[Rfam]
RNA: tRNA
Organism: bacterium HR25
RNA sequence: GCCCCCGUCGUCUAGAGGCCCAGGACGCCACCCUUUCAAGGUGGAAAUCGCGGGUUCGAAUCCCGCCGGGGGCG
Numbered sequence: 001g002c003c004c005c006c007g008u009c010g011u012c013u014a015g016a017g018g019c020c021c022a023g024g025a026c027g028c029c030a031c032c033c034u035u036u037c038a039a040g041g042u043g044g045a046a047a048u049c050g051c052g053g054g055u056u057c058g059a060a061u062c063c064c065g066c067c068g069g070g071g072g073c074g
Base pairs, nucleotide, nucleotide: 001073002072003071004070005069006068007067010026011025012024013023028044029043030042031041032040050066051065052064053063054062